Shown here is a 174-nucleotide sequence from Molossus molossus, a member of the family "U1 spliceosomal RNA". Taxonomically the source falls in Molossus (Eukaryota, Amniota, Chiroptera, Yangochiroptera). A search with the family's covariance model found it, with a score of 76 bits.

RNA sequence: AUACCUACCUAGCAGAGGAAAUACUUACGGGAUCAGGAAGGUGAUUUUCUGAGGGUGGGCGAGGCUUAUUUAUCUGUUACACUCUGGAUGUGCUAAUUCCUGCAGUUUCCCGAAUGUGGGAAACUCGACUGCAUAAUUUAUGGAAGUGGGGAACUGCGUUUGCACUAUCCCUUG
Numbered sequence: 001a002u003a004c005c006u007a008c009c010u011a012g013c014a015g016a017g018g019a020a021a022u023a024c025u026u027a028c029g030g031g032a033u034c035a036g037g038a039a040g041g042u043g044a045u046u047u048u049c050u051g052a053g054g055g056u057g058g059g060c061g062a063g064g065c066u067u068a069u070u071u072a073u074c075u076g077u078u079a080c081a082c083u084c085u086g087g088a089u090g091u092g093c094u095a096a097u098u099c100c101u102g103c104a105g106u107u108u109c110c111c112g113a114a115u116g117u118g119g120g121a122a123a124c125u126c127g128a129c130u131g132c133a134u135a136a137u138u139u140a141u142g143g144a145a146g147u148g149g150g151g152a153a154c155u156g157c158g159u160u161u162g163c164a165c166u167a168u169c170c171c172u173u174g
Base pairs, nucleotide, nucleotide: 012132013131014130015129017050018049019048020047021046025044026043027042028041052101053100054099055098061097063094064093065092067090068089069088070087071086103127105125106123107121108120109119110118148172149171150170151169153168156165158163